Rfam assigns this 116-nucleotide sequence from Streptomyces chromofuscus to the family "Streptomyces-metK RNA". Rfam classes the family as a small RNA. The organism belongs to Streptomyces, within Bacteria.
RNA sequence: GCGAGACGGUGCCCCGGCGGCGGAGAGCGACCGAUAAACUGUGGGCGGACGUCGGCGGGCGCAGCUCCCGUCCCGUCCACACAUGAUCAGCCAGCAGCCGCUGCAACCCCAGGGAG
Numbered sequence: 001g002c003g004a005g006a007c008g009g010u011g012c013c014c015c016g017g018c019g020g021c022g023g024a025g026a027g028c029g030a031c032c033g034a035u036a037a038a039c040u041g042u043g044g045g046c047g048g049a050c051g052u053c054g055g056c057g058g059g060c061g062c063a064g065c066u067c068c069c070g071u072c073c074c075g076u077c078c079a080c081a082c083a084u085g086a087u088c089a090g091c092c093a094g095c096a097g098c099c100g101c102u103g104c105a106a107c108c109c110c111a112g113g114g115a116g
Stems, first nucleotide, its partner, number of pairs: 047078005055071005092103004